[Rfam]
RNA sequence: UAACCGGAUAUGCGAAUGUCCGCUGAACGAUCAGAAGUCAGCCGAGGUCAUAGUAGUGGGAACUUCUAGAAUUCCCAUGAAGGAC
Numbered sequence: 001u002a003a004c005c006g007g008a009u010a011u012g013c014g015a016a017u018g019u020c021c022g023c024u025g026a027a028c029g030a031u032c033a034g035a036a037g038u039c040a041g042c043c044g045a046g047g048u049c050a051u052a053g054u055a056g057u058g059g060g061a062a063c064u065u066c067u068a069g070a071a072u073u074c075c076c077a078u079g080a081a082g083g084a085c
Stems, first nucleotide, its partner, number of pairs: 001025002005022007038045002047085003056078006
A member of the RNA family "Group II catalytic intron D1-D4-1" from Pusillimonas sp. T2, 85 nucleotides long. A reference for the family is Bonen and Vogel (2001), "The ins and outs of group II introns", Trends Genet. Pairs were carried over by alignment from the consensus structure. It scores 71 bits against the family's covariance model.